[Rfam]
RNA: mir-8799 microRNA precursor family
RNA sequence: CGGGGGAGGCCGGAUCUUGGGCUGUGUCCCAGCGCUCUGUGCUCCGGAGCCUGCGCUGUUGGAUUCGGGCUCCCAGCGGUGCAGCCUCCU
Numbered sequence: 001c002g003g004g005g006g007a008g009g010c011c012g013g014a015u016c017u018u019g020g021g022c023u024g025u026g027u028c029c030c031a032g033c034g035c036u037c038u039g040u041g042c043u044c045c046g047g048a049g050c051c052u053g054c055g056c057u058g059u060u061g062g063a064u065u066c067g068g069g070c071u072c073c074c075a076g077c078g079g080u081g082c083a084g085c086c087u088c089c090u
Stems, first nucleotide, its partner, number of pairs: 002089005009082002011079001013077001016076002019073003023069001025067002027063003030058006039051001041050003